The family of this 100-nucleotide RNA from Moschus moschiferus is "mir-1199 microRNA precursor family".

RNA sequence: UGCGCCGGAGUCGGGGCCUAAGCCCAGGUCGCGCGGGCAGUGAACUCGUCGAACUGCGCGUACGGCCGGUGCUCAGCCUGCCGGGCCCCAGCCCCGCGCU
Numbered sequence: 001u002g003c004g005c006c007g008g009a010g011u012c013g014g015g016g017c018c019u020a021a022g023c024c025c026a027g028g029u030c031g032c033g034c035g036g037g038c039a040g041u042g043a044a045c046u047c048g049u050c051g052a053a054c055u056g057c058g059c060g061u062a063c064g065g066c067c068g069g070u071g072c073u074c075a076g077c078c079u080g081c082c083g084g085g086c087c088c089c090a091g092c093c094c095c096g097c098g099c100u
Stems, first nucleotide, its partner, number of pairs: 002099004007095002010092002013089006019075001021073003024069002027067005033061002037057002040054001046052002

Gene Ontology terms of the family: RISC complex and miRNA-mediated post-transcriptional gene silencing.